[Rfam]
RNA: ASpks TB sRNA
Nucleotides: 069
Stems, first nucleotide, its partner, number of pairs: 015025003028065001030063001032059002038053002041050001043048001
Number, partner (000 for none) and nucleotide at each position: 001000c002000u003000u004000c005000a006000a007000c008000g009000a010000c011000c012000c013000c014000a015025g016024c017023c018000a019000c020000a021000g022000c023017g024016g025015c026000c027000g028065c029000u030063c031000a032059c033058g034000g035000c036000c037000c038053u039052g040000g041050c042000c043048g044000u045000a046000c047000g048043u049000c050041g051000c052039c053038a054000u055000g056000a057000u058033c059032g060000c061000c062000u063030g064000c065028g066000c067000c068000u069000c